RNA sequence: UAUGGCUGGCGCAGGCGUGCGUCCUGACAACCUUGAAUUGUUUCUUCGCGCCGGAUUAAAAGAGGUGCAUAGCUCGGCAGGACGCUGGACGGCGUCGCCGAUGCGCUAUCGCAAUAGCGGAUUAUCGAUGUCAUCCGACGCGAGCGCUGAUGAAUAUGCCCGCUACGGUGUCGACAAAGAGGCCGUCGCAGAGAUGAAAGCGCUGAUUGUUCACUACCGCCAGUAACCGUUUUUACCGCCGCAUCAUGUCGCCCAAUGUGAUGCUUGCUUGUACCAGGCCCCUGCCAUUAACAGGGGCCUUUUUUU
Numbered sequence: 001u002a003u004g005g006c007u008g009g010c011g012c013a014g015g016c017g018u019g020c021g022u023c024c025u026g027a028c029a030a031c032c033u034u035g036a037a038u039u040g041u042u043u044c045u046u047c048g049c050g051c052c053g054g055a056u057u058a059a060a061a062g063a064g065g066u067g068c069a070u071a072g073c074u075c076g077g078c079a080g081g082a083c084g085c086u087g088g089a090c091g092g093c094g095u096c097g098c099c100g101a102u103g104c105g106c107u108a109u110c111g112c113a114a115u116a117g118c119g120g121a122u123u124a125u126c127g128a129u130g131u132c133a134u135c136c137g138a139c140g141c142g143a144g145c146g147c148u149g150a151u152g153a154a155u156a157u158g159c160c161c162g163c164u165a166c167g168g169u170g171u172c173g174a175c176a177a178a179g180a181g182g183c184c185g186u187c188g189c190a191g192a193g194a195u196g197a198a199a200g201c202g203c204u205g206a207u208u209g210u211u212c213a214c215u216a217c218c219g220c221c222a223g224u225a226a227c228c229g230u231u232u233u234u235a236c237c238g239c240c241g242c243a244u245c246a247u248g249u250c251g252c253c254c255a256a257u258g259u260g261a262u263g264c265u266u267g268c269u270u271g272u273a274c275c276a277g278g279c280c281c282c283u284g285c286c287a288u289u290a291a292c293a294g295g296g297g298c299c300u301u302u303u304u305u306u
Base pairs, nucleotide, nucleotide: 003276004275005274009270011268012267013266014265015264017041018040021038022037024035026032045082046081047080050078051077052076054075055074083130084129086127087126089123093119094118101115102114103112104111105110132140134138144163145162146161150157166263167262169260170259171258179252181250182249183248185245188242189241193240195238196237199234200233202231204229205228207226208225213224214223215222277299278298279297280296281295282294283293284292
The record is a 306-nucleotide sequence from Kosakonia cowanii, which matches "MicL sRNA" in Rfam. Rfam classes the family as a small RNA. The literature on the family includes a 2014 paper in Genes Dev by Guo et al., "MicL, a new sigmaE-dependent sRNA, combats envelope stress by repressing synthesis of Lpp, the major outer membrane lipoprotein". Gene Ontology term of the family: translation repressor activity.